[Rfam]
RNA sequence: UCGCCCACAAUGCCUUUCACGGGUUCAGCAAGGAUGCGGCCGGGUAGUUUCCUGAUCGGUCGAUGCAAACGUCGAAGCUCUUCAAAGGGGCAUCUCUGCUGGAGUCGUGAUCGGCUUAGAUCAUGCCGAUUAUCCGGUUCCUCCAAUGGUCUCCUCGCGCUAACCCCGUAGCGUGUGGUUUUUAGCGGGCUCCAGGCCCGCUUUUUUU
Numbered sequence: 001u002c003g004c005c006c007a008c009a010a011u012g013c014c015u016u017u018c019a020c021g022g023g024u025u026c027a028g029c030a031a032g033g034a035u036g037c038g039g040c041c042g043g044g045u046a047g048u049u050u051c052c053u054g055a056u057c058g059g060u061c062g063a064u065g066c067a068a069a070c071g072u073c074g075a076a077g078c079u080c081u082u083c084a085a086a087g088g089g090g091c092a093u094c095u096c097u098g099c100u101g102g103a104g105u106c107g108u109g110a111u112c113g114g115c116u117u118a119g120a121u122c123a124u125g126c127c128g129a130u131u132a133u134c135c136g137g138u139u140c141c142u143c144c145a146a147u148g149g150u151c152u153c154c155u156c157g158c159g160c161u162a163a164c165c166c167c168g169u170a171g172c173g174u175g176u177g178g179u180u181u182u183u184a185g186c187g188g189g190c191u192c193c194a195g196g197c198c199c200g201c202u203u204u205u206u207u208u
Stems, first nucleotide, its partner, number of pairs: 005149003018109005024103007032095006038073003043070001045068001047066002050063002078089004111132001113130001115128001153178002156175007184202008
This 208-nucleotide sequence from Paraburkholderia phymatum belongs to the Rfam family "Burkholderia sRNA Bp1_Cand871_SIPHT".
Gene Ontology term of the family: bacterial biofilm matrix.
Pairs were carried over by alignment from the consensus structure, which was predicted with CMfinder.
By type it is a small RNA.